[Rfam]
RNA sequence: GCUUUGCCUGCUAGGGAGGCUGAGUUCGCUGGAUCGCUUGAGCCCAGGAGUUCUGGGCUGCAGUGCGCUAUGCCAAGAGGGCACCCGCGCUAAGGCCGCCAUCAAUACGGUGAGCCCCGGGGAGCUGGGGCACACCAGGUUGACUAAGGAGGGGUGAACCGACCCAGGUCAGAGACGGAGCAGGUCAAAGCUCCCGUGACGGUCAGUAGCGGGAUCGCGCCUGUGAAUAGCCACUGCAGCGUAGCCUGGGCAACACAGAGAGCCCACAUCUCUC
Numbered sequence: 001g002c003u004u005u006g007c008c009u010g011c012u013a014g015g016g017a018g019g020c021u022g023a024g025u026u027c028g029c030u031g032g033a034u035c036g037c038u039u040g041a042g043c044c045c046a047g048g049a050g051u052u053c054u055g056g057g058c059u060g061c062a063g064u065g066c067g068c069u070a071u072g073c074c075a076a077g078a079g080g081g082c083a084c085c086c087g088c089g090c091u092a093a094g095g096c097c098g099c100c101a102u103c104a105a106u107a108c109g110g111u112g113a114g115c116c117c118c119g120g121g122g123a124g125c126u127g128g129g130g131c132a133c134a135c136c137a138g139g140u141u142g143a144c145u146a147a148g149g150a151g152g153g154g155u156g157a158a159c160c161g162a163c164c165c166a167g168g169u170c171a172g173a174g175a176c177g178g179a180g181c182a183g184g185u186c187a188a189a190g191c192u193c194c195c196g197u198g199a200c201g202g203u204c205a206g207u208a209g210c211g212g213g214a215u216c217g218c219g220c221c222u223g224u225g226a227a228u229a230g231c232c233a234c235u236g237c238a239g240c241g242u243a244g245c246c247u248g249g250g251c252a253a254c255a256c257a258g259a260g261a262g263c264c265c266a267c268a269u270c271u272c273u274c
Stems, first nucleotide, its partner, number of pairs: 003017003022272003026268001031263001034261002037258002042251007053244003057240009067231005073225001077224001079222004084217001085213002088211005094204005100198003103142004109136004114131007144148001151194005161186004169178002
Background:
Shown here is a 274-nucleotide sequence from Tricholaema leucomelas, a member of the family "Metazoan signal recognition particle RNA". Rfam's curators write: The signal recognition particle (SRP) is a universally conserved ribonucleoprotein. It is involved in the co-translational targeting of proteins to membranes. The eukaryotic SRP consists of a 300-nucleotide 7S RNA and six proteins: SRPs 72, 68, 54, 19, 14, and 9. The organism belongs to Tricholaema lacrymosa, within Eukaryota. For this family Rfam cites "SRPDB: Signal Recognition Particle Database" (Rosenblad et al., Nucleic Acids Res, 2003). By type it is a non-coding RNA gene. Clan: SRP clan.